[Rfam]
Shown here is a 73-nucleotide RNA from Medicago truncatula, a member of the family "MIR5272 microRNA precursor family".
The base pairs follow the family's consensus structure, which was predicted with RNAalifold.
The organism belongs to Medicago, within Eukaryota.
It scores 87 bits against the family's covariance model.
Rfam 15.1 lists 271 matches to the family in 4 species.
RNA sequence: UUGAACAUGAAUUGAUUAUGUUUGGAUACACUUCAAUAGAAGUGAUUCUUAUGAGUUGAUGUUGUUUGGAUAG
Dot-bracket structure: ..........(((((((..((..((((.(((((......)))))))))..)).))))))).............